[Rfam]
RNA: Archaeal signal recognition particle RNA
Organism: Hyperthermus butylicus
RNA sequence: CGCGCGGGUAGGGCCGGGGGGCUCGCCCUCCCCCCACGCCCGAAACGGGCGCAAUGCGGGGGCCAGUAACCCGGCUUGGGGCUGUAGGCCCCCGCGGCAGACCCAGCCGACCAAUGACCCCCGUCCCGCGGGGCCGGCGGCGGCGGAGCCCCCUCCGGAGGGAGGGCGGCUACCGCCCUUGCCGGGGGAACCAGGCCAGGCCCGGAAGGGAGCAACCUAACCCCGGACGCCCGGCGUUCGCGGGGGCGCGGGGUGAGGCAACGGCUGGGCCCGCUGCCGCCGAGGGUCUACAGCCGCAAGCCGGGGGCCGCGCG
Dot-bracket structure: (((((((.(..((((((((((.......))))))....((((.(..........).)))))))).....(((((((((.(((.(((..((.(.(((((((.((((((((.((......((((((((((((((((((((((.(((((((((((((((....)))))).)))).))))).)..((((((.....(((.....(((....))).....)))..)))))).)).))))).))))))))...))))))...))...)))))))).)...)))))).).))...))).))).)))))))))).)))))))